[Rfam]
RNA sequence: AAAGUAAGAUGUCCUAUCGCAUUUUUUUUUGAAAAAAUGAGGAAAGUCCGGACACCAUAGAGCAGUACAAUGGGUAAUUCCCAUCCACCAAAAGGUGAGGAAUAGUGCAACAGAAAGAAAGUACAGGAAAGCUGUAGUGAAAUCAUGUAAACUCUGUACGGUGAAAUGCCAUGUAUACCGGAUAAUUUGCUCGGUUUGUACCGGGGGGUCGGCAGAUAGAGAUAGUGGGGAACUACCAUCCUAGAUAAAUGAUAGGUAUAAAAACAGAAUCCGGCUUAUAGUCUUGCUUUCAUG
Numbered sequence: 001a002a003a004g005u006a007a008g009a010u011g012u013c014c015u016a017u018c019g020c021a022u023u024u025u026u027u028u029u030u031g032a033a034a035a036a037a038u039g040a041g042g043a044a045a046g047u048c049c050g051g052a053c054a055c056c057a058u059a060g061a062g063c064a065g066u067a068c069a070a071u072g073g074g075u076a077a078u079u080c081c082c083a084u085c086c087a088c089c090a091a092a093a094g095g096u097g098a099g100g101a102a103u104a105g106u107g108c109a110a111c112a113g114a115a116a117g118a119a120a121g122u123a124c125a126g127g128a129a130a131g132c133u134g135u136a137g138u139g140a141a142a143u144c145a146u147g148u149a150a151a152c153u154c155u156g157u158a159c160g161g162u163g164a165a166a167u168g169c170c171a172u173g174u175a176u177a178c179c180g181g182a183u184a185a186u187u188u189g190c191u192c193g194g195u196u197u198g199u200a201c202c203g204g205g206g207g208g209u210c211g212g213c214a215g216a217u218a219g220a221g222a223u224a225g226u227g228g229g230g231a232a233c234u235a236c237c238a239u240c241c242u243a244g245a246u247a248a249a250u251g252a253u254a255g256g257u258a259u260a261a262a263a264a265c266a267g268a269a270u271c272c273g274g275c276u277u278a279u280a281g282u283c284u285u286g287c288u289u290u291c292a293u294g
Stems, first nucleotide, its partner, number of pairs: 001290010011279001013256006020039008044277003048274005053163004060192004065159005070084005085099001086097004100154002105152002107148003167214004178204004184196004221240003225236004
Bacterial RNase P class A: a 294-nucleotide RNA from Blattabacterium sp. It is annotated as a ribozyme.